RNA: Y RNA
Organism: Saimiri boliviensis
RNA sequence: GGCUAGUCCGAAGGUAGUGAGUUAUCUCAGUUGAUCACAGUCAGUUACAGAUUCAACUCCUUGUUCUACUUUUUCCCCCCUUCUCAGUACUGCACUUGACUACUGUUAA
Numbered sequence: 001g002g003c004u005a006g007u008c009c010g011a012a013g014g015u016a017g018u019g020a021g022u023u024a025u026c027u028c029a030g031u032u033g034a035u036c037a038c039a040g041u042c043a044g045u046u047a048c049a050g051a052u053u054c055a056a057c058u059c060c061u062u063g064u065u066c067u068a069c070u071u072u073u074u075c076c077c078c079c080c081u082u083c084u085c086a087g088u089a090c091u092g093c094a095c096u097u098g099a100c101u102a103c104u105g106u107u108a109a
Base pairs, nucleotide, nucleotide: 002104004102005101006100007099008098010097011096014093015092016088018086019085020084021083039071040070043067044066